[Rfam]
Nucleotides: 068
Stems, first nucleotide, its partner, number of pairs: 007064004013057004023037004039052005
Number, partner (000 for none) and nucleotide at each position: 001000a002000u003000a004000a005000c006000a007064a008063g009062u010061u011000a012000c013057c014056a015055g016054u017000g018000a019000c020000a021000a022000a023037u024036u025035c026034c027000c028000a029000g030000g031000u032000u033000g034026g035025g036024a037023a038000a039052a040051g041050c042049u043048u044000u045000a046000a047000a048043a049042a050041g051040c052039u053000a054016a055015c056014u057013g058000a059000u060000u061010a062009a063008c064007u065000g066000a067000c068000c
Annotation: A member of the RNA family "DUF3800-II RNA", 68 nucleotides long. Pairs were carried over by alignment from the consensus structure, which is taken from published work.